RNA sequence: UGCCCUUAUAACUUGAGGGGCAUGAGGAUAGUCAGUAGUCCAACAUCCCUCUUGAUGGCAC
Numbered sequence: 001u002g003c004c005c006u007u008a009u010a011a012c013u014u015g016a017g018g019g020g021c022a023u024g025a026g027g028a029u030a031g032u033c034a035g036u037a038g039u040c041c042a043a044c045a046u047c048c049c050u051c052u053u054g055a056u057g058g059c060a061c
Base pairs, nucleotide, nucleotide: 001060002059003058004057006055007054008053015051016050017049018048019047020046026040027039029037030036
mir-327 microRNA precursor family: a 61-nucleotide RNA sequence from Mus musculus. The family's consensus secondary structure was predicted with RNAalifold. Rfam 15.1 lists 5 matches to the family in 3 species. The source organism's lineage runs through Eukaryota, Dipnotetrapodomorpha, Mammalia, Boreoeutheria and Mus. It is one of the family's seed sequences.